[Rfam]
RNA: skipping-rope RNA
RNA sequence: AUUCUUUGAGGUGAAAAAAGCGUAGUCAUGCACCACAUGCCGUUGGCAAUGGGUAAAAGAGAUGUUGGGAGUGACGCACCAACCAAAGAAU
Numbered sequence: 001a002u003u004c005u006u007u008g009a010g011g012u013g014a015a016a017a018a019a020g021c022g023u024a025g026u027c028a029u030g031c032a033c034c035a036c037a038u039g040c041c042g043u044u045g046g047c048a049a050u051g052g053g054u055a056a057a058a059g060a061g062a063u064g065u066u067g068g069g070a071g072u073g074a075c076g077c078a079c080c081a082a083c084c085a086a087a088g089a090a091u
Stems, first nucleotide, its partner, number of pairs: 001091008011029004020077004031059001032054003064083005